[Rfam]
RNA: NoRC associated RNA, pRNA
RNA sequence: UUCCUGGGGAAUUUUUGGGAAUGGUGUCCCAGCUCCCCCGUUCCCGGGGAAUUUUUGGGAACGGUGUCCCAGCUCCCCCGUUCCCGGGGC
Numbered sequence: 001u002u003c004c005u006g007g008g009g010a011a012u013u014u015u016u017g018g019g020a021a022u023g024g025u026g027u028c029c030c031a032g033c034u035c036c037c038c039c040g041u042u043c044c045c046g047g048g049g050a051a052u053u054u055u056u057g058g059g060a061a062c063g064g065u066g067u068c069c070c071a072g073c074u075c076c077c078c079c080g081u082u083c084c085c086g087g088g089g090c
Base pairs, nucleotide, nucleotide: 004087006085008084009083010082011081017079018078019077026068028066029064030063034059035058036057